RNA sequence: UCAGCCGGCCGGGCGGCCGCUCUCGCCAAUCGCCGAAAGGUGGCGGGGGAGGAAAGUCCGGGCUCCACGGAGAGACGGUGCCGGAUAACGUCCGGCGAGGGUGACCUCAGGGAUAGCGCCACAGAAAACAGACCGCCCAUUCGACUUCGUGCGGAAGGGUAAGGGUGAAACGGCGGGGUAAGAGCCCACCGCGUUGCCGGUAACGGGAACGGCACGGCAAGCCCCACCGGGAGCAAGACCGAAUAGGAACGACGCGGACGGCCGAUGGUCGUCCAUCCGAUCUCCGGGACAGUCGUUCGGGUGGGUUGCUCGAGGCGUCUCGCAAGAGGCGUCCCAGAGGAAUGGUCGCCGCGCGCUUUCGCCGUCUGGCGGUGCGCGAACAGAACCCGGCUUACAGGCCGGCUGACACU
Numbered sequence: 001u002c003a004g005c006c007g008g009c010c011g012g013g014c015g016g017c018c019g020c021u022c023u024c025g026c027c028a029a030u031c032g033c034c035g036a037a038a039g040g041u042g043g044c045g046g047g048g049g050a051g052g053a054a055a056g057u058c059c060g061g062g063c064u065c066c067a068c069g070g071a072g073a074g075a076c077g078g079u080g081c082c083g084g085a086u087a088a089c090g091u092c093c094g095g096c097g098a099g100g101g102u103g104a105c106c107u108c109a110g111g112g113a114u115a116g117c118g119c120c121a122c123a124g125a126a127a128a129c130a131g132a133c134c135g136c137c138c139a140u141u142c143g144a145c146u147u148c149g150u151g152c153g154g155a156a157g158g159g160u161a162a163g164g165g166u167g168a169a170a171c172g173g174c175g176g177g178g179u180a181a182g183a184g185c186c187c188a189c190c191g192c193g194u195u196g197c198c199g200g201u202a203a204c205g206g207g208a209a210c211g212g213c214a215c216g217g218c219a220a221g222c223c224c225c226a227c228c229g230g231g232a233g234c235a236a237g238a239c240c241g242a243a244u245a246g247g248a249a250c251g252a253c254g255c256g257g258a259c260g261g262c263c264g265a266u267g268g269u270c271g272u273c274c275a276u277c278c279g280a281u282c283u284c285c286g287g288g289a290c291a292g293u294c295g296u297u298c299g300g301g302u303g304g305g306u307u308g309c310u311c312g313a314g315g316c317g318u319c320u321c322g323c324a325a326g327a328g329g330c331g332u333c334c335c336a337g338a339g340g341a342a343u344g345g346u347c348g349c350c351g352c353g354c355g356c357u358u359u360c361g362c363c364g365u366c367u368g369g370c371g372g373u374g375c376g377c378g379a380a381c382a383g384a385a386c387c388c389g390g391c392u393u394a395c396a397g398g399c400c401g402g403c404u405g406a407c408a409c410u
Stems, first nucleotide, its partner, number of pairs: 001406010011395001012350007020049009054393003058390005063233004072283001074281001076229005081095005096110001097108004111224002116222002118218003133164002135160004140155004172190002175187003191213001192211004197206003237307004247298006276288004314333008